[Rfam]
Shown here is a 182-nucleotide RNA sequence from Paenibacillus pectinilyticus, a member of the family "6S / SsrS RNA". NCBI's taxonomy places the organism under Bacteria, Bacillota, Caryophanales, Paenibacillaceae, Paenibacillus.
Nucleotides: 182
Stems, first nucleotide, its partner, number of pairs: 002180003006176005012169004017165003033152004038147006058128003062124001064122002069118001072117002075114004084105001089101003
Number, partner (000 for none) and nucleotide at each position: 001000a002180g003179a004178a005000u006176c007175c008174u009173g010172c011000g012169a013168u014167g015166c016000u017165c018164g019163u020000a021000a022000c023000g024000g025000u026000u027000u028000u029000a030000a031000g032000u033152u034151g035150u036149u037000u038147u039146a040145a041144a042143c043142c044000a045000a046000u047000g048000a049000c050000u051000g052000u053000u054000u055000c056000u057000a058128g059127g060126g061000a062124g063000a064122c065121c066000u067000a068000u069118a070000u071000u072117g073116a074000a075114g076113u077112g078111u079000g080000g081000c082000u083000g084105a085000c086000a087000u088000g089101c090100c091099c092000u093000c094000g095000a096000a097000a098000g099091g100090g101089g102000a103000c104000c105084u106000c107000a108000a109000a110000u111078a112077c113076a114075c115000g116073u117072c118069u119000g120000c121065g122064g123000a124062c125000a126060c127059c128058c129000a130000c131000c132000u133000g134000c135000g136000a137000g138000a139000g140000c141000g142043g143042g144041u145040u146039u147038g148000a149036a150035g151034c152033a153000c154000c155000a156000a157000a158000a159000c160000c161000g162000g163019a164018c165017g166015g167014c168013a169012u170000a171000g172010g173009c174008g175007g176006g177000u178004u179003u180002c181000u182000u
A search with the family's covariance model found it, with a score of 89 bits.